[Rfam]
The record is a 90-nucleotide sequence from Cellulomonas sp. JH27-2, which matches "tRNA" in Rfam. A search with the family's covariance model found it, with a score of 55 bits.

RNA sequence: GGAGGGCUGGCUGAGCGGCCGAAGGCACUGGUCUUGAAAACCAGAGAGGCGGUAUCCCCGUCUCCGCGGGUUCGAAUCCCGCGCCCUCCG
Numbered sequence: 001g002g003a004g005g006g007c008u009g010g011c012u013g014a015g016c017g018g019c020c021g022a023a024g025g026c027a028c029u030g031g032u033c034u035u036g037a038a039a040a041c042c043a044g045a046g047a048g049g050c051g052g053u054a055u056c057c058c059c060g061u062c063u064c065c066g067c068g069g070g071u072u073c074g075a076a077u078c079c080c081g082c083g084c085c086c087u088c089c090g
Base pairs, nucleotide, nucleotide: 001089002088003087004086005085006084007083010026011025012024028044029043030042031041032040066082067081068080069079070078

NCBI's taxonomy places the organism under Bacteria, Bacillati, Actinomycetota, Actinomycetes, Cellulomonas.